c-di-GMP-I-GGC riboswitch aptamer: an 86-nucleotide sequence from Alkalicoccus halolimnae. Taxonomically the source falls in Alkalicoccus (Bacteria, Bacillati, Bacillota, Bacilli). The base pairs follow the family's consensus structure, which is taken from published work. The match comes from Rfam's covariance-model search (73 bits).
RNA sequence: GUAGAAAAAGGCAAACCUGCUGAAAGGCAGGGACGCAAAGCCACGGAUCUACGGGCUGGACACCUAGGAUAGCCGGGCUGCCUAUG
Numbered sequence: 001g002u003a004g005a006a007a008a009a010g011g012c013a014a015a016c017c018u019g020c021u022g023a024a025a026g027g028c029a030g031g032g033a034c035g036c037a038a039a040g041c042c043a044c045g046g047a048u049c050u051a052c053g054g055g056c057u058g059g060a061c062a063c064c065u066a067g068g069a070u071a072g073c074c075g076g077g078c079u080g081c082c083u084a085u086g
Stems, first nucleotide, its partner, number of pairs: 003083002011036002016031006034072001039079004044075003047070003